[Rfam]
RNA sequence: UAAACCUUUAAAUUUAGUCCAGAGAGGCUAGAAAGGUUGUGAGAGCACUUGUAUGUUUACAGGAAGUAGUAUGUACAGGUAUACCUCUUUGCAACCUUUCGCAAAGAGGUUUUUUUGUG
Dot-bracket structure: ..(((((((....((((((......)))))))))))))......(.((.(((...(((....)))...))).)).)..(.(.((((((((((........)))))))))).).).....

Shown here is a 119-nucleotide sequence from Tenuibacillus multivorans, a member of the family "PyrR binding site". Rfam's curators write: This family represents the PyrR binding site and terminator structure. This RNA structure is found upstream of a variety of genes involved in pyrimidine biosynthesis and transport. The alignment also includes a portion of the antiterminator structure. A reference for the family is Bonner et al. (2001), "Molecular recognition of pyr mRNA by the Bacillus subtilis attenuation regulatory protein PyrR", Nucleic Acids Res.